[Rfam]
RNA: Flavo-1 RNA
Organism: Flavobacterium johnsoniae
RNA sequence: GUGUAGCCCCGAUAGAAGUGGAAAUCCUUUUGUACCGGGGUUCGGUACAAAAGAUUGAAACGGAUAGCGGGACCUCAG
Numbered sequence: 001g002u003g004u005a006g007c008c009c010c011g012a013u014a015g016a017a018g019u020g021g022a023a024a025u026c027c028u029u030u031u032g033u034a035c036c037g038g039g040g041u042u043c044g045g046u047a048c049a050a051a052a053g054a055u056u057g058a059a060a061c062g063g064a065u066a067g068c069g070g071g072a073c074c075u076c077a078g
Stems, first nucleotide, its partner, number of pairs: 009070003013066002018061002023056004029051005035045003